[Rfam]
Source information:
A member of the RNA family "Y RNA-like" from Sulfitobacter undariae, 130 nucleotides long. A reference for the family is Chen et al. (2013), "An RNA degradation machine sculpted by Ro autoantigen and noncoding RNA", Cell. Lineage of the source: Bacteria > Alphaproteobacteria > Rhodobacterales > Roseobacteraceae > Sulfitobacter. In Deinococcus radiodurans Rsr is tethered via Y RNA to the exoribonuclease PNPase and channels single-stranded RNA into the PNPase cavity.
RNA sequence: UCGGCGAAUGCUGCGUGGAACUACAUUGUUAAUGUCGUGGUCGUGGGUUCGAUUCCCACCCCUGCAGCCUUCUGGCAGGGUAGCUCAGGGGUAGAGCACGUAUCGUUUCACCACUCCUUGUCGCCGGGGA
Numbered sequence: 001u002c003g004g005c006g007a008a009u010g011c012u013g014c015g016u017g018g019a020a021c022u023a024c025a026u027u028g029u030u031a032a033u034g035u036c037g038u039g040g041u042c043g044u045g046g047g048u049u050c051g052a053u054u055c056c057c058a059c060c061c062c063u064g065c066a067g068c069c070u071u072c073u074g075g076c077a078g079g080g081u082a083g084c085u086c087a088g089g090g091g092u093a094g095a096g097c098a099c100g101u102a103u104c105g106u107u108u109c110a111c112c113a114c115u116c117c118u119u120g121u122c123g124c125c126g127g128g129g130a
Stems, first nucleotide, its partner, number of pairs: 002126006013112001015111006036100003043059005050091001060080006083097004
Dot-bracket structure: .((((((.....(.((((((...............(((....(((((..[....)))))((((((.........))))))..((((....]..))))))).....)))))))........))))))....

The family's RNA type in Rfam is small RNA.